Notes
Small Cajal body specific RNA 3: a 141-nucleotide RNA sequence from Oryctolagus cuniculus. A reference for the family is Darzacq et al. (2002), "Cajal body-specific small nuclear RNAs: a novel class of 2'-O-methylation and pseudouridylation guide RNAs", EMBO J. Clan: SCARNA3 clan. It is one of the family's seed sequences. From the family's description: scaRNAs are a specific class of small nuclear RNAs which localise to the Cajal bodies and guide the modification of RNA polymerase II transcribed spliceosomal RNAs U1, U2, U4, U5 and U12.
RNA sequence: AAUGGAAGCUGCAGGAACCAACCAUGUGGACAAAAGAGAAAAAUCCCUUUGUCUGCAGCAGGCAGCGAUCCUACAUAAACAUGGAGGUCUCUGUCGGACUUAGGACAGCUGGCUAAGUCUGAUCGUUCCCCUCCAUACAGC
Numbered sequence: 001a002a003u004g005g006a007a008g009c010u011g012c013a014g015g016a017a018c019c020a021a022c023c024a025u026g027u028g029g030a031c032a033a034a035a036g037a038g039a040a041a042a043a044u045c046c047c048u049u050u051g052u053c054u055g056c057a058g059c060a061g062g063c064a065g066c067g068a069u070c071c072u073a074c075a076u077a078a079a080c081a082u083g084g085a086g087g088u089c090u091c092u093g094u095c096g097g098a099c100u101u102a103g104g105a106c107a108g109c110u111g112g113c114u115a116a117g118u119c120u121g122a123u124c125g126u127u128c129c130c131c132u133c134c135a136u137a138c139a140g141c
Base pairs, nucleotide, nucleotide: 004071005070006069008066009065010064011063012062025057026056027055028054029053030052031051036048038046083134084133085132086131087130091125093123094122095121097119098118099117100116101115102114103113

The source organism's lineage runs through Eukaryota, Opisthokonta, Vertebrata, Eutheria and Oryctolagus.